[Rfam]
RNA: Bag-1 internal ribosome entry site (IRES)
RNA sequence: AAAGCGUAGCCAAAGCACGGGUCCGGCGGAGCGCGGCAGAGCGUGGAGACUGCGAGGCGCCCCGCCCCCCACCGCCACCCGGGAGCGGCGGGGCCCCCGGAAGCGCACCCCUUGGCCAGGGCCGGGAGCCGCCCCAGUCGGUGCCCCAAGCCGAGGGCGGUCUGCCUCCCUCCCAGCGAUCAGCCAUCCGGAGUGCGACCAGAGGGCAUGCCAGAUCCACCAGGGCCGCCGCGGCCUGCGCUCGCAGGCCGCAGGUGUGGAAGAAAGCAUGGCCUCGCUCGGCCCCGAGCGAGGAAAUGGCAGCUGCCGAGCCCAGCGGGACCCUCACCCGCAUUAAUGAGAAGCACGAUCUUCAAGUUAUCCCGCAAGAGGGCGGUAGUGAACCAAUG
Numbered sequence: 001a002a003a004g005c006g007u008a009g010c011c012a013a014a015g016c017a018c019g020g021g022u023c024c025g026g027c028g029g030a031g032c033g034c035g036g037c038a039g040a041g042c043g044u045g046g047a048g049a050c051u052g053c054g055a056g057g058c059g060c061c062c063c064g065c066c067c068c069c070c071a072c073c074g075c076c077a078c079c080c081g082g083g084a085g086c087g088g089c090g091g092g093g094c095c096c097c098c099g100g101a102a103g104c105g106c107a108c109c110c111c112u113u114g115g116c117c118a119g120g121g122c123c124g125g126g127a128g129c130c131g132c133c134c135c136a137g138u139c140g141g142u143g144c145c146c147c148a149a150g151c152c153g154a155g156g157g158c159g160g161u162c163u164g165c166c167u168c169c170c171u172c173c174c175a176g177c178g179a180u181c182a183g184c185c186a187u188c189c190g191g192a193g194u195g196c197g198a199c200c201a202g203a204g205g206g207c208a209u210g211c212c213a214g215a216u217c218c219a220c221c222a223g224g225g226c227c228g229c230c231g232c233g234g235c236c237u238g239c240g241c242u243c244g245c246a247g248g249c250c251g252c253a254g255g256u257g258u259g260g261a262a263g264a265a266a267g268c269a270u271g272g273c274c275u276c277g278c279u280c281g282g283c284c285c286c287g288a289g290c291g292a293g294g295a296a297a298u299g300g301c302a303g304c305u306g307c308c309g310a311g312c313c314c315a316g317c318g319g320g321a322c323c324c325u326c327a328c329c330c331g332c333a334u335u336a337a338u339g340a341g342a343a344g345c346a347c348g349a350u351c352u353u354c355a356a357g358u359u360a361u362c363c364c365g366c367a368a369g370a371g372g373g374c375g376g377u378a379g380u381g382a383a384c385c386a387a388u389g
Stems, first nucleotide, its partner, number of pairs: 020123005025117003039110001041108001045073002079100005085094002163375004169371001187206003224243002227240003231236001276291005